[Rfam]
Rfam assigns this 46-nucleotide RNA from Upupa epops to the family "Histone 3' UTR stem-loop".

RNA sequence: CCAAAGGCUCUUUUAAGAGCCACCUAUGAUUUCAAAUAUAAGGGCU
Numbered sequence: 001c002c003a004a005a006g007g008c009u010c011u012u013u014u015a016a017g018a019g020c021c022a023c024c025u026a027u028g029a030u031u032u033c034a035a036a037u038a039u040a041a042g043g044g045c046u
Stems, first nucleotide, its partner, number of pairs: 006021006
Lineage of the source: Eukaryota > Chordata > Tetrapoda > Sauria > Upupa. A reference for the family is Williams and Marzluff (1995), "The sequence of the stem and flanking sequences at the 3' end of histone mRNA are critical determinants for the binding of the stem-loop binding protein", Nucleic Acids Res. About the family: The mRNAs of metazoan histone genes lack a poly-A tail. 3' end processing occurs at a site between a highly conserved stem-loop (modelled by this family) and a purine rich region around 20 nts downstream (the histone downstream element, or HDE). The stem-loop is bound by a 31 kDa stem-loop binding protein (SLBP - also termed the histone hairpin binding protein, or HBP). Together with U7 snRNA binding of the HDE, SLBP binding nucleate s the formation of the processing complex. The histone 3' UTR stem-loop is also involved in nucleocytoplasmic transport of the mRNA, and in stability regulation and translation efficiency in the cytoplasm. It scores 38 bits against the family's covariance model.